[Rfam]
RNA sequence: GGGCGGUUAGCUCAGGGGUAGAGCACUACCUUGACACGGUAGGGGUCACAAGUUCAAAUCUUGUAUCGCCCA
Numbered sequence: 001g002g003g004c005g006g007u008u009a010g011c012u013c014a015g016g017g018g019u020a021g022a023g024c025a026c027u028a029c030c031u032u033g034a035c036a037c038g039g040u041a042g043g044g045g046u047c048a049c050a051a052g053u054u055c056a057a058a059u060c061u062u063g064u065a066u067c068g069c070c071c072a
Stems, first nucleotide, its partner, number of pairs: 001071007010024004026042005048064005